[Rfam]
RNA sequence: GGAUGGACUAGGUCGGGCAGCUAGGCCCUGCUCGUCACCUGCAAUUUGGCCUUCAGCAGGGACCGAACCCGGGGGCGUCCGGUCAGACCGACGCGGGCCCCGGAAGCCAACGUAGAAACCUCGUCCUUCGGGGACGGCGGUUCGCGGUCGCCGGCCGCAGGGUCGGUCCGCCGCGAUUCGACGCCGGCAGCCCGUCAGGCGCGGAAGCGAGCAGCGGACCGGUGAACGUUCGUCGCUCGGAGGAUCGCGGGGUGGAGGAGGCGACCGGGAUUCCCCGUGCCGGAACGCCGGGCAAUCCCGCUGUCCACCA
Numbered sequence: 001g002g003a004u005g006g007a008c009u010a011g012g013u014c015g016g017g018c019a020g021c022u023a024g025g026c027c028c029u030g031c032u033c034g035u036c037a038c039c040u041g042c043a044a045u046u047u048g049g050c051c052u053u054c055a056g057c058a059g060g061g062a063c064c065g066a067a068c069c070c071g072g073g074g075g076c077g078u079c080c081g082g083u084c085a086g087a088c089c090g091a092c093g094c095g096g097g098c099c100c101c102g103g104a105a106g107c108c109a110a111c112g113u114a115g116a117a118a119c120c121u122c123g124u125c126c127u128u129c130g131g132g133g134a135c136g137g138c139g140g141u142u143c144g145c146g147g148u149c150g151c152c153g154g155c156c157g158c159a160g161g162g163u164c165g166g167u168c169c170g171c172c173g174c175g176a177u178u179c180g181a182c183g184c185c186g187g188c189a190g191c192c193c194g195u196c197a198g199g200c201g202c203g204g205a206a207g208c209g210a211g212c213a214g215c216g217g218a219c220c221g222g223u224g225a226a227c228g229u230u231c232g233u234c235g236c237u238c239g240g241a242g243g244a245u246c247g248c249g250g251g252g253u254g255g256a257g258g259a260g261g262c263g264a265c266c267g268g269g270a271u272u273c274c275c276c277g278u279g280c281c282g283g284a285a286c287g288c289c290g291g292g293c294a295a296u297c298c299c300g301c302u303g304u305c306c307a308c309c310a
Stems, first nucleotide, its partner, number of pairs: 002309001004307005011064004015033006038060005070300005077293004081288001088283003092279006099269005106262003111257001113255001118253007125243008133234004137229003140178001142176007150168001151166006182224006192217004200209003
The family of this 310-nucleotide RNA from Halobellus clavatus is "Archaeal signal recognition particle RNA". Taxonomically the source falls in Halobellus (Archaea, Methanobacteriati, Halobacteria, Halobacteriales). Rfam links the family to the GO terms SRP-dependent cotranslational protein targeting to membrane, signal sequence recognition and signal recognition particle, plasma membrane targeting. Clan: SRP clan. The family's RNA type in Rfam is non-coding RNA gene. The base pairs follow the family's consensus structure, which is taken from published work.